[Rfam]
RNA: Small nucleolar RNA U6-53/MBII-28
RNA sequence: CCUCUGUGAUGACACCCAUGCUAAUAUUGAGACACCAGAUGGGGAUUUGACCUUGCAUCGGAUGUUACUGAUGUACAUUCUUCUCCUAGAUUUACUGAGGGAC
Number, nucleotide and partner (000 for none) at each position: 001c000002c101003u100004c099005u000006g000007u000008g000009a000010u000011g000012a000013c000014a000015c000016c000017c000018a000019u000020g000021c000022u000023a000024a000025u000026a000027u000028u000029g000030a000031g000032a000033c000034a000035c000036c000037a000038g000039a000040u055041g054042g053043g052044g051045a000046u000047u000048u000049g000050a000051c044052c043053u042054u041055g040056c000057a000058u000059c000060g000061g000062a000063u000064g000065u000066u000067a000068c000069u000070g000071a000072u000073g000074u000075a000076c000077a000078u000079u000080c000081u000082u000083c000084u000085c000086c000087u000088a000089g000090a000091u000092u000093u000094a000095c000096u000097g000098a000099g004100g003101g002102a000103c000